[Rfam]
This 88-nucleotide RNA from Medicago truncatula belongs to the Rfam family "MIR2617 microRNA precursor family". The match comes from Rfam's covariance-model search (49 bits). Pairs were carried over by alignment from the consensus structure, which was predicted with RNAalifold. Rfam links the family to the GO terms miRNA-mediated post-transcriptional gene silencing and RISC complex. The organism belongs to Medicago, within Eukaryota.
RNA sequence: AGUUGAUGUGACAUGCCCGCUUUGGAAAUACUCUGAUGUAUGAUUAUAUAUUAUUUAAUUGUUUUGGGUAACGGGGUGUUACAAUUGG
Dot-bracket structure: ..(.(.((((((((.((((.(................................................).)))))))))))).).).